[Rfam]
RNA sequence: GCAAGUAUGCAUACUGCUAUUUUCCGUUUCUUUUUUUACUUUAGCGCCUGAUUGCGGGGGGCUUUGCGCGUAAGAAAAGAAACGAAAAGUAGCGCUUAAGCCUCCCAUCGCGGAGGCUUUUUUAUU
Numbered sequence: 001g002c003a004a005g006u007a008u009g010c011a012u013a014c015u016g017c018u019a020u021u022u023u024c025c026g027u028u029u030c031u032u033u034u035u036u037u038a039c040u041u042u043a044g045c046g047c048c049u050g051a052u053u054g055c056g057g058g059g060g061g062c063u064u065u066g067c068g069c070g071u072a073a074g075a076a077a078a079g080a081a082a083c084g085a086a087a088a089g090u091a092g093c094g095c096u097u098a099a100g101c102c103u104c105c106c107a108u109c110g111c112g113g114a115g116g117c118u119u120u121u122u123u124a125u126u
Base pairs, nucleotide, nucleotide: 016093017092018091019090021088022087023086025084026083027082028081029080030079031078032077033076034075036073037072038071039070045056046055047054058067060065098119099118100117101116102115103114104113105112